[Rfam]
Nucleotides: 117
Stems, first nucleotide, its partner, number of pairs: 001021004009035006037100004041095008051068006071084004104116004
Number, partner (000 for none) and nucleotide at each position: 001021a002020g003019g004018u005000a006000a007000c008000a009035g010034u011033c012032u013031g014030c015000u016000g017000c018004a019003c020002c021001u022000u023000u024000a025000u026000c027000a028000c029000u030014g031013c032012a033011g034010g035009c036000a037100c038099u039098c040097g041095g042094c043093c044092a045091u046090g047089c048088u049000g050000u051068g052067g053066g054065c055064a056063u057000g058000c059000a060000a061000c062000a063056a064055u065054g066053c067052c068051u069000u070000a071084g072083a073082c074081g075000u076000u077000u078000u079000a080000u081074c082073g083072u084071c085000g086000a087000g088048g089047g090046u091045a092044u093043g094042g095041u096000g097040u098039g099038a100037g101000g102000u103000c104116g105115g106114g107113u108000u109000g110000a111000a112000u113107g114106c115105c116104c117000a
About this RNA
The record is a 117-nucleotide sequence from Aneurinibacillus sp. XH2, which matches "epsC RNA" in Rfam. The family's consensus secondary structure is taken from published work. The match comes from Rfam's covariance-model search (87 bits).